Shown here is a 47-nucleotide RNA sequence from Marinobacterium stanieri, a member of the family "Xanthine riboswitch aptamer (NMT1 RNA)". Rfam links the family to the GO term purine nucleobase binding. On this family, see Yu and Breaker, RNA 2020: "A bacterial riboswitch class senses xanthine and uric acid to regulate genes associated with purine oxidation".
RNA sequence: ACGGUAAGUAGAAGCGGUCAGGGGUUGCCCGGGACAUUGCUUAGCGG
Numbered sequence: 001a002c003g004g005u006a007a008g009u010a011g012a013a014g015c016g017g018u019c020a021g022g023g024g025u026u027g028c029c030c031g032g033g034a035c036a037u038u039g040c041u042u043a044g045c046g047g
Stems, first nucleotide, its partner, number of pairs: 005043006015032001018034002021030003